The family of this 126-nucleotide RNA sequence from Hipposideros armiger is "Small nucleolar RNA SNORD22". The organism belongs to Hipposideros, within Eukaryota. A reference for the family is Tycowski et al. (1996), "A mammalian gene with introns instead of exons generating stable RNA products", Nature. By type it is a C/D-box small nucleolar RNA.

RNA sequence: UCCCUGUGAGGCAGCAUUCGCAUGUCUUCCCCCCUGCUGUAGUCUCAGAGCCUGUAAAAGUGGGCCAACUGGGGCUGGCUGGGGGAGAAGAGGACAGUUUGUUACAAAAGCAAAUAUCUGAGGGAC
Numbered sequence: 001u002c003c004c005u006g007u008g009a010g011g012c013a014g015c016a017u018u019c020g021c022a023u024g025u026c027u028u029c030c031c032c033c034c035u036g037c038u039g040u041a042g043u044c045u046c047a048g049a050g051c052c053u054g055u056a057a058a059a060g061u062g063g064g065c066c067a068a069c070u071g072g073g074g075c076u077g078g079c080u081g082g083g084g085g086a087g088a089a090g091a092g093g094a095c096a097g098u099u100u101g102u103u104a105c106a107a108a109a110g111c112a113a114a115u116a117u118c119u120g121a122g123g124g125a126c
Base pairs, nucleotide, nucleotide: 001125002124003123004122